The record is a 68-nucleotide sequence, which matches "RAGATH-18 RNA" in Rfam.
From the family's description: Actinobacteria, Firmicutes, Fusobacteria, Thermotogae (1 example).
[Rfam]
RNA sequence: CCUUUGGAGAACUAUCUAAACAAGAGUAGUAACUAUAUAUUAUGAAAUUGGGUUCAUUGAAUAAGGAA
Numbered sequence: 001c002c003u004u005u006g007g008a009g010a011a012c013u014a015u016c017u018a019a020a021c022a023a024g025a026g027u028a029g030u031a032a033c034u035a036u037a038u039a040u041u042a043u044g045a046a047a048u049u050g051g052g053u054u055c056a057u058u059g060a061a062u063a064a065g066g067a068a
Stems, first nucleotide, its partner, number of pairs: 001066004009055005021050003029043003